[Rfam]
RNA: Small nucleolar RNA Z221/R21b
RNA sequence: AGGCAGUGAUGAUCAACUUGAGAAAGUCAUGCACCACUCUGAUUUCAAUCCGUGCUGAUAAAUUUCUCAACACCCAUUUUUCUAUCUGAGCCU
Numbered sequence: 001a002g003g004c005a006g007u008g009a010u011g012a013u014c015a016a017c018u019u020g021a022g023a024a025a026g027u028c029a030u031g032c033a034c035c036a037c038u039c040u041g042a043u044u045u046c047a048a049u050c051c052g053u054g055c056u057g058a059u060a061a062a063u064u065u066c067u068c069a070a071c072a073c074c075c076a077u078u079u080u081u082c083u084a085u086c087u088g089a090g091c092c093u
Stems, first nucleotide, its partner, number of pairs: 001093004